[Rfam]
RNA sequence: CUGCAUGGGGAAAUGUCUGCCCCUCUUCCCUUUGGGGGUAGGGAUGCAUGACACACUGUAUUUAAAAAGGAGUUCUUGGGGCUACCAGCCUUAUGGUAGAGGUUGAGUGGUAUGGUAUUUCUCAUAUACAA
Numbered sequence: 001c002u003g004c005a006u007g008g009g010g011a012a013a014u015g016u017c018u019g020c021c022c023c024u025c026u027u028c029c030c031u032u033u034g035g036g037g038g039u040a041g042g043g044a045u046g047c048a049u050g051a052c053a054c055a056c057u058g059u060a061u062u063u064a065a066a067a068a069g070g071a072g073u074u075c076u077u078g079g080g081g082c083u084a085c086c087a088g089c090c091u092u093a094u095g096g097u098a099g100a101g102g103u104u105g106a107g108u109g110g111u112a113u114g115g116u117a118u119u120u121c122u123c124a125u126a127u128a129c130a131a
Stems, first nucleotide, its partner, number of pairs: 003056001006053002016042008070123003081111002085107001086105007